[Rfam]
RNA sequence: UCCUACACGCAACGGCUUCCUGACGCGUGAGGUGUAAUCAUUGGAGCA
Number, nucleotide and partner (000 for none) at each position: 001u000002c000003c000004u032005a000006c029007a028008c027009g026010c025011a000012a000013c022014g021015g047016c046017u045018u000019c044020c043021u014022g013023a000024c000025g010026c009027g008028u007029g006030a000031g000032g004033u000034g000035u000036a000037a000038u000039c000040a000041u000042u000043g020044g019045a017046g016047c015048a000